[Rfam]
RNA sequence: GAUAAAGAGGGUGAGAUGCCCUCUCGCCGAAAGACCAAGGGUUCCUGCGCAAGGCUAAUCCGCGCAGGGUGAGCCGGCCCCUAAGACGAGCCCGAAGGGGGUAGUCGAUGGGAAUGCGGUUAAUAUUCCGCAGCCUGGUGGUGUGUGACGGAUGGUGUGUGUUGUACGUCCUUAUCGGAUUGGACGUGCUUCGAAACUGUCCCGGGAAAUAGCCCCACCGUAUAGACCGUACCCGAAACCGACACAGGUGGUCAGGUAGAGUAUACCAAGGCGCU
Numbered sequence: 001g002a003u004a005a006a007g008a009g010g011g012u013g014a015g016a017u018g019c020c021c022u023c024u025c026g027c028c029g030a031a032a033g034a035c036c037a038a039g040g041g042u043u044c045c046u047g048c049g050c051a052a053g054g055c056u057a058a059u060c061c062g063c064g065c066a067g068g069g070u071g072a073g074c075c076g077g078c079c080c081c082u083a084a085g086a087c088g089a090g091c092c093c094g095a096a097g098g099g100g101g102u103a104g105u106c107g108a109u110g111g112g113a114a115u116g117c118g119g120u121u122a123a124u125a126u127u128c129c130g131c132a133g134c135c136u137g138g139u140g141g142u143g144u145g146u147g148a149c150g151g152a153u154g155g156u157g158u159g160u161g162u163u164g165u166a167c168g169u170c171c172u173u174a175u176c177g178g179a180u181u182g183g184a185c186g187u188g189c190u191u192c193g194a195a196a197c198u199g200u201c202c203c204g205g206g207a208a209a210u211a212g213c214c215c216c217a218c219c220g221u222a223u224a225g226a227c228c229g230u231a232c233c234c235g236a237a238a239c240c241g242a243c244a245c246a247g248g249u250g251g252u253c254a255g256g257u258a259g260a261g262u263a264u265a266c267c268a269a270g271g272c273g274c275u
Base pairs, nucleotide, nucleotide: 006024007023008022009021010020011019025273026272027271028270033253034252035251036250039233040232044068045067046066047065048064049063053061054060075229076228077227080111081110085106086105087104089102091100092099093098115132116131117130118129119128135225136224138219141216143214146211150202151201152200153199157197158196161192164189165188166187167186168185169184170183171182239248240247255267256266257265258264
The family of this 275-nucleotide part of an RNA from Sphingomonas sp. OV641 is "Bacterial large subunit ribosomal RNA". The source organism's lineage runs through Bacteria, Pseudomonadati, Sphingomonadales, Sphingomonadaceae and Sphingomonas.